[Rfam]
Nucleotides: 058
Base pairs, nucleotide, nucleotide: 006054007053008052009051010050011049016040017039018038019037020036021035022034023033
Number, partner (000 for none) and nucleotide at each position: 001000g002000g003000u004000a005000u006054u007053g008052u009051u010050u011049g012000c013000c014000c015000c016040a017039c018038g019037a020036u021035a022034a023033g024000c025000c026000c027000c028000g029000g030000a031000a032000a033023c034022u035021u036020g037019u038018u039017g040016u041000u042000u043000u044000g045000g046000u047000g048000u049011c050010a051009a052008a053007c054006a055000a056000a057000c058000a

Shown here is a 58-nucleotide sequence from Secundilactobacillus kimchicus, a member of the family "Ribosomal protein L13 leader". The match comes from Rfam's covariance-model search (65 bits). Taxonomically the source falls in Secundilactobacillus kimchicus (Bacteria, Bacillati, Bacilli, Lactobacillales). From the family's description: This family is a putative r-protein leader autoregulatory structure found in B. subtilis and other low-GC Gram-positive bacteria. It is located in the 5' untranslated regions of mRNAs encoding the L13-S9 (rplM-rpsI) ribosomal protein operon. For this family Rfam cites "Diverse mechanisms for regulating ribosomal protein synthesis in Escherichia coli" (Zengel and Lindahl, Prog Nucleic Acid Res Mol Biol, 1994). Rfam classes the family as a cis-regulatory leader. Pairs were carried over by alignment from the consensus structure, which was predicted with CMfinder.